[Rfam]
The record is a 133-nucleotide RNA from Otolemur garnettii, which matches "Small nucleolar RNA SNORA69" in Rfam. It is annotated as an H/ACA-box small nucleolar RNA.
RNA sequence: AAAGCAGGUUGCAAUUACAGUACUUCAUUCUGUGGAAGUAUUGCCAUUAUCCUGCUGAAAGAAAAGCCGUGUUUAAUCAUUUCCGGGUUUGCCUGUAUGGGGGUAAAAUCCUAACAGAUUGACACGGACAAUU
Numbered sequence: 001a002a003a004g005c006a007g008g009u010u011g012c013a014a015u016u017a018c019a020g021u022a023c024u025u026c027a028u029u030c031u032g033u034g035g036a037a038g039u040a041u042u043g044c045c046a047u048u049a050u051c052c053u054g055c056u057g058a059a060a061g062a063a064a065a066g067c068c069g070u071g072u073u074u075a076a077u078c079a080u081u082u083c084c085g086g087g088u089u090u091g092c093c094u095g096u097a098u099g100g101g102g103g104u105a106a107a108a109u110c111c112u113a114a115c116a117g118a119u120u121g122a123c124a125c126g127g128a129c130a131a132u133u
Base pairs, nucleotide, nucleotide: 003056004055005054006053007052008051018043019042020041021040022039023038024037025036026035067127068126069125070124071123072122073121075120076119077118078117085110086109088107089106090105091104092103093102094101

NCBI's taxonomy places the organism under Eukaryota, Opisthokonta, Bilateria, Tetrapoda, Otolemur.